Shown here is an 84-nucleotide RNA sequence from Ruminiclostridium hungatei, a member of the family "Clostridiales-2 RNA".
The family's consensus secondary structure is taken from published work.
RNA sequence: UAAAUUCGGGGAUUGAAAAGGGGGAUUCCCCUUUCCGGUCUAGAGGGGGUGCUCAGAAACACGUAGUGUUUCGUCGAAGGGGGG
Number, nucleotide and partner (000 for none) at each position: 001u000002a000003a000004a000005u000006u000007c000008g000009g000010g000011g000012a000013u000014u000015g035016a034017a033018a032019a000020g030021g029022g028023g000024g000025a000026u000027u000028c022029c021030c020031c000032u018033u017034u016035c015036c000037g000038g000039u000040c000041u000042a000043g000044a000045g000046g000047g000048g000049g000050u000051g000052c000053u000054c000055a000056g072057a071058a070059a069060c068061a000062c000063g000064u000065a000066g000067u000068g060069u059070u058071u057072c056073g000074u000075c000076g000077a000078a000079g000080g000081g000082g000083g000084g000
A search with the family's covariance model found it, with a score of 63 bits.